Record summary:
Rfam assigns this 68-nucleotide RNA from Pseudogulbenkiania sp. NH8B to the family "int-alpA RNA". It is annotated as a small RNA. The family's consensus secondary structure is taken from published work. Acidobacteria (1 example), Planctomycetes (1 example), Proteobacteria. The family has 167 seed sequences and 577 matches in Rfam 15.1.

RNA sequence: GCCGCGCCUACUCCGACGGGAGGAAAACCGGGACACCCUGCCCGGCUGGCGCGGCAAUCCAUACAGGG
Numbered sequence: 001g002c003c004g005c006g007c008c009u010a011c012u013c014c015g016a017c018g019g020g021a022g023g024a025a026a027a028c029c030g031g032g033a034c035a036c037c038c039u040g041c042c043c044g045g046c047u048g049g050c051g052c053g054g055c056a057a058u059c060c061a062u063a064c065a066g067g068g
Stems, first nucleotide, its partner, number of pairs: 001055008011022004028045005036068005